Source information: The record is a 137-nucleotide RNA sequence from Phtheirospermum japonicum, which matches "small nucleolar RNA snoR137" in Rfam. Pairs were carried over by alignment from the consensus structure, which was predicted with RNAalifold. Rfam links the family to the GO terms RNA processing and nucleolus. Taxonomically the source falls in Phtheirospermum (Eukaryota, eudicotyledons, asterids, lamiids).
[Rfam]
RNA sequence: GUUGCUUCUUCUAGUGAACUCUCUUUCACAUUCUUGGAGAUGUUCAUGUUUUCGAAGCAUAUAUAAAAUGAAGUCAGUUUAUAACAGCAUGAUGUCAGCAUUUUAAUGCAUCAUGCUACCUGUUUCCUGCUAAAUUU
Numbered sequence: 001g002u003u004g005c006u007u008c009u010u011c012u013a014g015u016g017a018a019c020u021c022u023c024u025u026u027c028a029c030a031u032u033c034u035u036g037g038a039g040a041u042g043u044u045c046a047u048g049u050u051u052u053c054g055a056a057g058c059a060u061a062u063a064u065a066a067a068a069u070g071a072a073g074u075c076a077g078u079u080u081a082u083a084a085c086a087g088c089a090u091g092a093u094g095u096c097a098g099c100a101u102u103u104u105a106a107u108g109c110a111u112c113a114u115g116c117u118a119c120c121u122g123u124u125u126c127c128u129g130c131u132a133a134a135u136u137u
Stems, first nucleotide, its partner, number of pairs: 003059006015046005020040005073131001075129003086117003090113005